[Rfam]
RNA sequence: AGCCGGCUGGCGCCGAAUCCCGAUUCAUCGGGAACCGGGGACCCAUCGCAAUUGGGGUGAAUCCGACCGUGUGUCGGUAGGGCAUCUCCACGCCCGAACCCGUCAGCUAACCCGGUAGGCGAGAUGGAGAGGACAC
Dot-bracket structure: ..........((((...(((((......)))))((((((....((.......))(((.....((((.......))))..((((........))))...))).........)))))).))))...............
RNA: c-di-AMP riboswitch aptamer (ydaO/yuaA leader)
Organism: Nonomuraea zeae